[Rfam]
RNA: mir-252 microRNA precursor family
Organism: Diaphorina citri
RNA sequence: CUCUGUUUCUAAGUACUGGUGCCGCAGGAGAAAUUCUUUUUGAUUUGAAUUGUACAAAACUCCUGCAGCUCAAGUGCUUAUCAAUGGAC
Numbered sequence: 001c002u003c004u005g006u007u008u009c010u011a012a013g014u015a016c017u018g019g020u021g022c023c024g025c026a027g028g029a030g031a032a033a034u035u036c037u038u039u040u041u042g043a044u045u046u047g048a049a050u051u052g053u054a055c056a057a058a059a060c061u062c063c064u065g066c067a068g069c070u071c072a073a074g075u076g077c078u079u080a081u082c083a084a085u086g087g088a089c
Stems, first nucleotide, its partner, number of pairs: 002088006010080008019071001024066007